[Rfam]
RNA sequence: CCUGUCGUGUUGCCGAGAGUUUCUUACUCCGGCAUGCGUCUCUGGUAACGGAGGGGUGUGAGAGCCCGGAGGACAAUGUAGCCCUUGCGUCGCAAGACGCAGAAGAACGAACCGUGAGGGGAGAUCAACUCUGGCAGCAUCGCAAGCCGGAUGGGAAC
Numbered sequence: 001c002c003u004g005u006c007g008u009g010u011u012g013c014c015g016a017g018a019g020u021u022u023c024u025u026a027c028u029c030c031g032g033c034a035u036g037c038g039u040c041u042c043u044g045g046u047a048a049c050g051g052a053g054g055g056g057u058g059u060g061a062g063a064g065c066c067c068g069g070a071g072g073a074c075a076a077u078g079u080a081g082c083c084c085u086u087g088c089g090u091c092g093c094a095a096g097a098c099g100c101a102g103a104a105g106a107a108c109g110a111a112c113c114g115u116g117a118g119g120g121g122a123g124a125u126c127a128a129c130u131c132u133g134g135c136a137g138c139a140u141c142g143c144a145a146g147c148c149g150g151a152u153g154g155g156a157a158c
Stems, first nucleotide, its partner, number of pairs: 002019002005016003028070005033060005039054006086101006102126002112119002130151006
Dot-bracket structure: .((.(((......))).))........((((((((((.((((((....)))))).))))).....)))))...............((((((....))))))((........((....)).....))...((((((..........)))))).......

Record summary
Shown here is a 158-nucleotide sequence from Desulfonema magnum, a member of the family "Group II catalytic intron D1-D4-7". The organism belongs to Desulfonema, within Bacteria. Its family is annotated with Group II intron splicing in the Gene Ontology. Rfam describes the family as follows. Group II introns are found in rRNA, tRNA and mRNA of organelles in fungi, plants and protists, and also in mRNA in bacteria. The family has 244 seed sequences and 1,296 matches in Rfam 15.1. The base pairs follow the family's consensus structure.